[Rfam]
RNA sequence: GCAAAUUGAGGUAGUAGGUUGUAUAGUAGUAUUUAUAGAGCAUACUAUACAGCGUGCUAGCUUUCUUUGC
Numbered sequence: 001g002c003a004a005a006u007u008g009a010g011g012u013a014g015u016a017g018g019u020u021g022u023a024u025a026g027u028a029g030u031a032u033u034u035a036u037a038g039a040g041c042a043u044a045c046u047a048u049a050c051a052g053c054g055u056g057c058u059a060g061c062u063u064u065c066u067u068u069g070c
Stems, first nucleotide, its partner, number of pairs: 001070005008063003012059005018053010
Shown here is a 70-nucleotide RNA from Drosophila virilis, a member of the family "let-7 microRNA precursor family". Rfam describes the family as follows. This family represents the microRNAs (miRNA) let-7 and mir-98. let-7 was identified from a study of developmental timing in C. elegans, and was later shown to be part of a much larger class of non-coding RNAs termed miRNAs. The literature on the family includes a 2018 paper in Cell by Liu et al., "Cryo-EM Structure of Human Dicer and Its Complexes with a Pre-miRNA Substrate". Rfam links the family to the GO terms RISC complex and miRNA-mediated post-transcriptional gene silencing. The family's consensus secondary structure was predicted with RNAalifold.